RNA sequence: AGCCGCAUUGGUUGGAUUGGGAAACUCAUCAAGUAAACUGAAAUACCGAGACAAGCUUUGCUUUUCAAUGGCGGGCCACAAUCCUUCGGGAUACUUUUUAGUCAGUGGAUUACAAAGAGGGUGAGCACUCAAAUCAUGUCAUUCGGAGUUUCAUCACAUCAUCGAUGCGGCUUUAUUA
Numbered sequence: 001a002g003c004c005g006c007a008u009u010g011g012u013u014g015g016a017u018u019g020g021g022a023a024a025c026u027c028a029u030c031a032a033g034u035a036a037a038c039u040g041a042a043a044u045a046c047c048g049a050g051a052c053a054a055g056c057u058u059u060g061c062u063u064u065u066c067a068a069u070g071g072c073g074g075g076c077c078a079c080a081a082u083c084c085u086u087c088g089g090g091a092u093a094c095u096u097u098u099u100a101g102u103c104a105g106u107g108g109a110u111u112a113c114a115a116a117g118a119g120g121g122u123g124a125g126c127a128c129u130c131a132a133a134u135c136a137u138g139u140c141a142u143u144c145g146g147a148g149u150u151u152c153a154u155c156a157c158a159u160c161a162u163c164g165a166u167g168c169g170g171c172u173u174u175a176u177u178a
Stems, first nucleotide, its partner, number of pairs: 055126003059123002062121005069114002076108004082091003093102003
Notes:
The family of this 178-nucleotide RNA from Bacteroides graminisolvens is "Bacteroidales-1 6S-Bacteroidales RNA suggested". Pairs were carried over by alignment from the consensus structure, which is taken from published work. A search with the family's covariance model found it, with a score of 185 bits. From the family's description: Bacteroidales-1 was first reported in a comparative genomics-based approach of genome and metagenome sequences from Weinberg et al. 2010 In a high-resolution transcriptome map study of Bacteroides thetaiotaomicron, Ryan et al. 2020 report this sRNA as 6S RNA homologue of Bacteroides, in the study they obtain evidence of small product RNAs (pRNAs) related to 6S function.